[Rfam]
RNA: Rhizobiales sRNA Atu_C8
RNA sequence: ACCAAUGGCAAAAGUUAUUCUCGUAGUACGAUCGCGCAUGGGCAGGGUGAUGUAGUCACCCGGCGAAAGCACCCAUGCGCGGACGACACCAAGGCUCCUCACGGGGCCUUUUUUAUUGCACA
Numbered sequence: 001a002c003c004a005a006u007g008g009c010a011a012a013a014g015u016u017a018u019u020c021u022c023g024u025a026g027u028a029c030g031a032u033c034g035c036g037c038a039u040g041g042g043c044a045g046g047g048u049g050a051u052g053u054a055g056u057c058a059c060c061c062g063g064c065g066a067a068a069g070c071a072c073c074c075a076u077g078c079g080c081g082g083a084c085g086a087c088a089c090c091a092a093g094g095c096u097c098c099u100c101a102c103g104g105g106g107c108c109u110u111u112u113u114u115a116u117u118g119c120a121c122a
Stems, first nucleotide, its partner, number of pairs: 009026001029118004033081010045061006063070002088110001092109007